[Rfam]
RNA: Small nucleolar RNA SNORD121A
RNA sequence: GUUCAAAAUACAGCGGUCUUUUCCAAGCACAUAUCUAAUUGUUCUGUGUGGAAAAUGACUGCUGCUACAUGAUUUUUGGAU
Numbered sequence: 001g002u003u004c005a006a007a008a009u010a011c012a013g014c015g016g017u018c019u020u021u022u023c024c025a026a027g028c029a030c031a032u033a034u035c036u037a038a039u040u041g042u043u044c045u046g047u048g049u050g051g052a053a054a055a056u057g058a059c060u061g062c063u064g065c066u067a068c069a070u071g072a073u074u075u076u077u078g079g080a081u
Stems, first nucleotide, its partner, number of pairs: 001081006008074001011071001